Background
Rfam assigns this 164-nucleotide sequence from Equus caballus to the family "U1 spliceosomal RNA". The organism belongs to Equus, within Eukaryota. The family has 100 seed sequences and 40,184 matches in Rfam 15.1. A search with the family's covariance model found it, with a score of 142 bits.
[Rfam]
RNA sequence: AUACUCACCUGGCAGGGGAGAUACCACGAUCAUGAAGGUGGUUUUCCUAGGGCGAGGCUUAUCCAUUGCACUCCAGAUUUGCUCACCUCUGCGAUUUCCCCAAAUAUGGGAAACUCAACUGCAUAAUUUGUAGUAGUGAGGGACUGCAUUCGUGCUUUCCCCUU
Numbered sequence: 001a002u003a004c005u006c007a008c009c010u011g012g013c014a015g016g017g018g019a020g021a022u023a024c025c026a027c028g029a030u031c032a033u034g035a036a037g038g039u040g041g042u043u044u045u046c047c048u049a050g051g052g053c054g055a056g057g058c059u060u061a062u063c064c065a066u067u068g069c070a071c072u073c074c075a076g077a078u079u080u081g082c083u084c085a086c087c088u089c090u091g092c093g094a095u096u097u098c099c100c101c102a103a104a105u106a107u108g109g110g111a112a113a114c115u116c117a118a119c120u121g122c123a124u125a126a127u128u129u130g131u132a133g134u135a136g137u138g139a140g141g142g143a144c145u146g147c148a149u150u151c152g153u154g155c156u157u158u159c160c161c162c163u164u
Base pairs, nucleotide, nucleotide: 012122013121014120015119016048017047018046019045020044021043023042024041025040026039027038049090050089051088052087054086056083057082058081061078062077063076093116094115095113096112097111099109100108138163140161141160142159143158146155147154148153
By type it is a spliceosomal small nuclear RNA.